The record is an 81-nucleotide RNA sequence from Allobosea spartocytisi, which matches "ZMP/ZTP riboswitch aptamer (pfl RNA motif)" in Rfam.
The family's consensus secondary structure is taken from published work.
A search with the family's covariance model found it, with a score of 62 bits.
[Rfam]
RNA sequence: CAGCGUUCGCGCGACUGGCGCUACGAGAUGGAUCACCAUCGGGAAACGCGAACGCAUGAGCCGCGCGCCUGGGCCUCACCU
Numbered sequence: 001c002a003g004c005g006u007u008c009g010c011g012c013g014a015c016u017g018g019c020g021c022u023a024c025g026a027g028a029u030g031g032a033u034c035a036c037c038a039u040c041g042g043g044a045a046a047c048g049c050g051a052a053c054g055c056a057u058g059a060g061c062c063g064c065g066c067g068c069c070u071g072g073g074c075c076u077c078a079c080c081u
Stems, first nucleotide, its partner, number of pairs: 003055009015043002017069005028039004058076001060074003